[Rfam]
Nucleotides: 107
Stems, first nucleotide, its partner, number of pairs: 036100005052087006
Number, partner (000 for none) and nucleotide at each position: 001000u002000u003000g004000c005000u006000u007000g008000a009000g010000g011000g012000a013000a014000g015000a016000u017000u018000a019000u020000g021000a022000u023000c024000c025000c026000u027000g028000a029000u030000a031000g032000u033000u034000u035000u036100u037099c038098a039097g040096c041000c042000u043000u044000u045000u046000c047000a048000c049000u050000u051000u052087g053086u054085c055084a056083g057082c058000u059000c060000u061000u062000u063000u064000u065000a066000u067000u068000a069000u070000u071000u072000u073000u074000u075000a076000c077000a078000a079000u080000u081000u082057g083056c084055u085054g086053a087052u088000c089000a090000u091000u092000u093000a094000u095000g096040g097039c098038u099037g100036g101000u102000a103000u104000a105000u106000a107000a

Rfam assigns this 107-nucleotide RNA from Apium graveolens to the family "Small nucleolar RNA snoR99". The family has 9 seed sequences and 733 matches in Rfam 15.1. A search with the family's covariance model found it, with a score of 60 bits. The family's RNA type in Rfam is H/ACA-box small nucleolar RNA. The family's consensus secondary structure was predicted with WAR.